Small nucleolar RNA SNORD34: an 80-nucleotide RNA sequence from Sorghum bicolor. The source organism's lineage runs through Eukaryota, Viridiplantae, Euphyllophyta, Poaceae and Sorghum. Its Rfam clan is "SNORD34 clan". The family has 14 seed sequences and 1,319 matches in Rfam 15.1. The match comes from Rfam's covariance-model search (46 bits). snoRNA U34 is found in intron 5 of the ribosomal protein L13a gene in humans. Gene Ontology terms of the family: RNA processing and nucleolus.
RNA sequence: UGUGUACUAUGAUGAGUUGCAGAAUCAUUUGCCUACAUUGUUUGAGUUUGUGAUAACAUCUGCAAAAUCUGAGUCUUUCA
Numbered sequence: 001u002g003u004g005u006a007c008u009a010u011g012a013u014g015a016g017u018u019g020c021a022g023a024a025u026c027a028u029u030u031g032c033c034u035a036c037a038u039u040g041u042u043u044g045a046g047u048u049u050g051u052g053a054u055a056a057c058a059u060c061u062g063c064a065a066a067a068u069c070u071g072a073g074u075c076u077u078u079c080a
Base pairs, nucleotide, nucleotide: 001080002079004076006074007073